[Rfam]
RNA sequence: UGCAACACCUGUCAAAGGGGUCAUUCCCCUCACCCAGGAGCUACUUUAACAUAUUCCGAAUUC
Numbered sequence: 001u002g003c004a005a006c007a008c009c010u011g012u013c014a015a016a017g018g019g020g021u022c023a024u025u026c027c028c029c030u031c032a033c034c035c036a037g038g039a040g041c042u043a044c045u046u047u048a049a050c051a052u053a054u055u056c057c058g059a060a061u062u063c
Stems, first nucleotide, its partner, number of pairs: 017047005024040004
The family of this 63-nucleotide RNA from Centaurea solstitialis is "Plastid-psbN 5UTR RNA". The source organism's lineage runs through Eukaryota, Streptophytina, Spermatophyta, eudicotyledons and Centaurea. Plastid psbN is a non-coding RNA (ncRNA) recognised in plastids. It was reported as a conserved 11 stem-loop in the prime untranslated region (5UTR) of psbN genes. It has been reported that the motif is retained in a subset of mature transcripts in barley, which can suggests a possible role in transcript alternative 5 prime processing. Pairs were carried over by alignment from the consensus structure, which was predicted with LocARNA.